[Rfam]
RNA sequence: AUAAUGAUACUUCUGCUUACGCAGCUCGGAGAGAUCCUCGGAGGGGUGAGAGUCCCAUGA
Numbered sequence: 001a002u003a004a005u006g007a008u009a010c011u012u013c014u015g016c017u018u019a020c021g022c023a024g025c026u027c028g029g030a031g032a033g034a035u036c037c038u039c040g041g042a043g044g045g046g047u048g049a050g051a052g053u054c055c056c057a058u059g060a
Stems, first nucleotide, its partner, number of pairs: 012057001013024004025043003029039003044056003
Shown here is a 60-nucleotide RNA sequence, a member of the family "pemK RNA".